[Rfam]
Acido-Lenti-1 RNA: a 46-nucleotide RNA. The family's RNA type in Rfam is small RNA. It scores 41 bits against the family's covariance model.
RNA sequence: CCGGGGGCUCGCGCCCCCGGCUACGCGCUUUCGCCCCUCCGGGGCU
Numbered sequence: 001c002c003g004g005g006g007g008c009u010c011g012c013g014c015c016c017c018c019g020g021c022u023a024c025g026c027g028c029u030u031u032c033g034c035c036c037c038u039c040c041g042g043g044g045c046u
Stems, first nucleotide, its partner, number of pairs: 001020008033045005
Rfam 15.1 lists 2,607 matches to the family in 171 species.